[Rfam]
Description:
The record is a 229-nucleotide RNA from Streptomyces smaragdinus, which matches "Actinobacteria sRNA Ms_IGR-5" in Rfam.
RNA sequence: ACACGAGAAGGGAGGUGGUUCGGCGAAUGUCUGAAUACCGGACGCGUGAGGUGGCUGCGGGCGAGCGUCCGCCGUCGCGCAACGUUUACGCGUAACGCCGGACAAGGACGCGAGUGGUGCGUCCGGCCGGCCCAAUCCCAAGCAGCACACCGGCCCGCGGCCCCAGCUGAUACGUCCGAUCAGCGCCCCCGCUCGUUUACGACGGGGAAGGGACCGCGGGCUUCUGCGU
Numbered sequence: 001a002c003a004c005g006a007g008a009a010g011g012g013a014g015g016u017g018g019u020u021c022g023g024c025g026a027a028u029g030u031c032u033g034a035a036u037a038c039c040g041g042a043c044g045c046g047u048g049a050g051g052u053g054g055c056u057g058c059g060g061g062c063g064a065g066c067g068u069c070c071g072c073c074g075u076c077g078c079g080c081a082a083c084g085u086u087u088a089c090g091c092g093u094a095a096c097g098c099c100g101g102a103c104a105a106g107g108a109c110g111c112g113a114g115u116g117g118u119g120c121g122u123c124c125g126g127c128c129g130g131c132c133c134a135a136u137c138c139c140a141a142g143c144a145g146c147a148c149a150c151c152g153g154c155c156c157g158c159g160g161c162c163c164c165a166g167c168u169g170a171u172a173c174g175u176c177c178g179a180u181c182a183g184c185g186c187c188c189c190c191g192c193u194c195g196u197u198u199a200c201g202a203c204g205g206g207g208a209a210g211g212g213a214c215c216g217c218g219g220g221c222u223u224c225u226g227c228g229u
Stems, first nucleotide, its partner, number of pairs: 015058005060133002065131002069126003073121003152222009162212002166184006